RNA sequence: GCUGGGUGCUGUGGCAUGCAUCUGUAAUCCCAGCUACUUGGGAGGCUGAGGCUGUUGGAUUGCUUGAGUCCAGGAGUUCUGGUCUAACCUGUGCUGUGUUGAUCGGGUGUCCAUGCUAAGACUGGUAUCAAUAUGGUGGCUCUAGGGGAGCCUGGGGUCACCAGGUUGUCCUAAGGAGGGGUGAACUGGCCCAGGUUGGAAACAGAGCAGGUCAAAGCCCCCAUACUGAUCAGUAGUGGGAUUGCACCUGUGAGUAGCCAGAGUAGAGCAGCCUGGACAAUACAGUGAGACGCAGGCUUUU
Numbered sequence: 001g002c003u004g005g006g007u008g009c010u011g012u013g014g015c016a017u018g019c020a021u022c023u024g025u026a027a028u029c030c031c032a033g034c035u036a037c038u039u040g041g042g043a044g045g046c047u048g049a050g051g052c053u054g055u056u057g058g059a060u061u062g063c064u065u066g067a068g069u070c071c072a073g074g075a076g077u078u079c080u081g082g083u084c085u086a087a088c089c090u091g092u093g094c095u096g097u098g099u100u101g102a103u104c105g106g107g108u109g110u111c112c113a114u115g116c117u118a119a120g121a122c123u124g125g126u127a128u129c130a131a132u133a134u135g136g137u138g139g140c141u142c143u144a145g146g147g148g149a150g151c152c153u154g155g156g157g158u159c160a161c162c163a164g165g166u167u168g169u170c171c172u173a174a175g176g177a178g179g180g181g182u183g184a185a186c187u188g189g190c191c192c193a194g195g196u197u198g199g200a201a202a203c204a205g206a207g208c209a210g211g212u213c214a215a216a217g218c219c220c221c222c223a224u225a226c227u228g229a230u231c232a233g234u235a236g237u238g239g240g241a242u243u244g245c246a247c248c249u250g251u252g253a254g255u256a257g258c259c260a261g262a263g264u265a266g267a268g269c270a271g272c273c274u275g276g277a278c279a280a281u282a283c284a285g286u287g288a289g290a291c292g293c294a295g296g297c298u299u300u301u
Stems, first nucleotide, its partner, number of pairs: 001046003004023006028043003048299003052295004060288005068278007079271003083267004089261003093258005099252001104250007111240002114238005120231002123228006129168004134163013170176002178221005187214005196205003
Metazoan signal recognition particle RNA: a 301-nucleotide RNA sequence from Aquarana catesbeiana. The family is grouped with related families in Rfam's "SRP clan". About the family: The signal recognition particle (SRP) is a universally conserved ribonucleoprotein. The match comes from Rfam's covariance-model search (243 bits). The literature on the family includes a 2002 paper in Nucleic Acids Res by Regalia et al., "Prediction of signal recognition particle RNA genes". The base pairs follow the family's consensus structure, which is taken from published work. The organism belongs to Aquarana, within Eukaryota.